[Rfam]
RNA sequence: GAGUGAAUGAUGAGAUCAUGUCUUGAGGAGAUUUAAUAACAUAAAAAUUAUGCUCAAUGGGAUUAUACUAGGACCC
Numbered sequence: 001g002a003g004u005g006a007a008u009g010a011u012g013a014g015a016u017c018a019u020g021u022c023u024u025g026a027g028g029a030g031a032u033u034u035a036a037u038a039a040c041a042u043a044a045a046a047a048u049u050a051u052g053c054u055c056a057a058u059g060g061g062a063u064u065a066u067a068c069u070a071g072g073a074c075c076c
Stems, first nucleotide, its partner, number of pairs: 001076001003074002006069001008067002